[Rfam]
RNA: MIR7504 microRNA precursor family
RNA sequence: UGGGAGAAUGACAAAUUAGAUUUUUUCUCUUGAUUUUCAGCUUUUUUUCUUGAAAAAAUUCAAAUCCAACUAAAAAUGCUAAAAAUUGGGAGGAAAAAUCUCAUUUGUCAUAUAAUCCCU
Numbered sequence: 001u002g003g004g005a006g007a008a009u010g011a012c013a014a015a016u017u018a019g020a021u022u023u024u025u026u027c028u029c030u031u032g033a034u035u036u037u038c039a040g041c042u043u044u045u046u047u048u049c050u051u052g053a054a055a056a057a058a059u060u061c062a063a064a065u066c067c068a069a070c071u072a073a074a075a076a077u078g079c080u081a082a083a084a085a086u087u088g089g090g091a092g093g094a095a096a097a098a099u100c101u102c103a104u105u106u107g108u109c110a111u112a113u114a115a116u117c118c119c120u
Base pairs, nucleotide, nucleotide: 002119003118004117005116006113008111009110010109011108012107013106014105015104016103018101019100020099021098022097023096024095025094027092028091029090030089031088032087033086034085035084036083037082039080040079043076044075045074046073